This 147-nucleotide sequence belongs to the Rfam family "xerDC RNA".
RNA sequence: GAUCCCGGCCGAAGGGAUCACACGACACACGCGGGCCAUGGUGUUUGCCAUCCCCCGCAGCCGAGUUCAGCGGCCGUGUCGGCAGUCGUCGUCGGAGCAAUACGCACCGACAACAGGGACCAUCCCCAUACUGCGUCCGUACUGACC
Numbered sequence: 001g002a003u004c005c006c007g008g009c010c011g012a013a014g015g016g017a018u019c020a021c022a023c024g025a026c027a028c029a030c031g032c033g034g035g036c037c038a039u040g041g042u043g044u045u046u047g048c049c050a051u052c053c054c055c056c057g058c059a060g061c062c063g064a065g066u067u068c069a070g071c072g073g074c075c076g077u078g079u080c081g082g083c084a085g086u087c088g089u090c091g092u093c094g095g096a097g098c099a100a101u102a103c104g105c106a107c108c109g110a111c112a113a114c115a116g117g118g119a120c121c122a123u124c125c126c127c128a129u130a131c132u133g134c135g136u137c138c139g140u141a142c143u144g145a146c147c
Stems, first nucleotide, its partner, number of pairs: 001019006023081006031058005060074004082134005088114002091111005116126004